[Rfam]
RNA sequence: CAGCGAGUUGGUAGCUACGAGCCAAGGGCGGUAGCGUA
Numbered sequence: 001c002a003g004c005g006a007g008u009u010g011g012u013a014g015c016u017a018c019g020a021g022c023c024a025a026g027g028g029c030g031g032u033a034g035c036g037u038a
Base pairs, nucleotide, nucleotide: 008025009024010023011022012021
Description
JUMPstart RNA: a 38-nucleotide sequence from Dickeya dadantii. The base pairs follow the family's consensus structure, which is taken from published work.